RNA sequence: UUUUUAUUGGAAGUUGACGGCCACGUAUUGCGAUUUUAUUGGAGGUUAAUGUUAAUUAGGUGCAUGAAAUUAACGUCCAAUAAAUGUGCAACACAUGACGAUCAACGUCU
Numbered sequence: 001u002u003u004u005u006a007u008u009g010g011a012a013g014u015u016g017a018c019g020g021c022c023a024c025g026u027a028u029u030g031c032g033a034u035u036u037u038a039u040u041g042g043a044g045g046u047u048a049a050u051g052u053u054a055a056u057u058a059g060g061u062g063c064a065u066g067a068a069a070u071u072a073a074c075g076u077c078c079a080a081u082a083a084a085u086g087u088g089c090a091a092c093a094c095a096u097g098a099c100g101a102u103c104a105a106c107g108u109c110u
Stems, first nucleotide, its partner, number of pairs: 020099001022097002025094002029090003035084002038081003
Dot-bracket structure: ...................(.((.((..(((...((.(((......................................))).))...)))..)).)).)...........